A member of the RNA family "Iron response element II" from Biomphalaria glabrata, 31 nucleotides long. Rfam 15.1 lists 5,197 matches to the family in 722 species. Lineage of the source: Eukaryota > Metazoa > Heterobranchia > Euthyneura > Biomphalaria. The base pairs follow the family's consensus structure, which is taken from published work. A reference for the family is Koeller et al. (1989), "A cytosolic protein binds to structural elements within the iron regulatory region of the transferrin receptor mRNA", Proc Natl Acad Sci U S A. About the family: IRE, TFRC, SLC40A1, SDHB, SLC11A2, CDC42BPA, ACO2, ALAS2_H.SAPIENS, CDC14A, EPAS1, ALAS2, qoxD, Hao1, NDUFS1, transferrin, Aconitate.
RNA sequence: UUUUUUUCGGAAUCAGUGUAUUCCAAAACGU
Numbered sequence: 001u002u003u004u005u006u007u008c009g010g011a012a013u014c015a016g017u018g019u020a021u022u023c024c025a026a027a028a029c030g031u
Base pairs, nucleotide, nucleotide: 002030004028005027006026007025009024010023011022012021013020014018